[Rfam]
RNA sequence: GGCAAUAAAGGUUGCUUAGAAUAGGCGUUUUGGACCCGAGGGCAGUGCUCGGCAUCUCCACUGUAUGUUGCGGGGAUGAAACAGGUUAGACAGGCGCAGUAAAGAAGUUAGCCGUUGCUCGGUGGGAAUUCCAGCCGUAUAAGUGGGUCAUUUUUAUAAGUGCAAACGAUAAUCUCGUUGCCGCUAAUGACAACUUUGACGCUAACGCUUUAGCAGCUGCAGCUUAA
Number, nucleotide and partner (000 for none) at each position: 001g119002g118003c117004a116005a115006u000007a000008a000009a000010g000011g000012u000013u000014g108015c107016u106017u105018a000019g000020a000021a000022u000023a000024g000025g000026c096027g095028u094029u000030u093031u092032g091033g000034a000035c000036c052037c051038g050039a049040g048041g000042g000043c000044a000045g000046u000047g000048c040049u039050c038051g037052g036053c078054a077055u076056c075057u074058c073059c072060a000061c000062u000063g000064u000065a000066u000067g000068u000069u000070g000071c000072g059073g058074g057075g056076a055077u054078g053079a000080a000081a000082c000083a000084g000085g000086u000087u000088a000089g000090a000091c032092a031093g030094g028095c027096g026097c000098a000099g000100u000101a000102a000103a000104g000105a017106a016107g015108u014109u000110a000111g000112c000113c000114g000115u005116u004117g003118c002119u001120c137121g136122g135123u134124g000125g000126g000127a000128a000129u000130u000131c000132c000133a000134g123135c122136c121137g120138u000139a000140u000141a000142a000143g000144u000145g000146g000147g000148u000149c000150a000151u000152u000153u000154u000155u000156a000157u000158a000159a000160g000161u000162g000163c000164a000165a000166a000167c000168g000169a000170u000171a000172a000173u000174c000175u000176c000177g000178u000179u000180g000181c000182c000183g000184c000185u000186a000187a000188u000189g000190a000191c000192a000193a000194c000195u000196u000197u000198g000199a000200c000201g000202c000203u000204a000205a000206c000207g000208c000209u000210u000211u000212a000213g000214c000215a000216g000217c000218u000219g000220c000221a000222g000223c000224u000225u000226a000227a000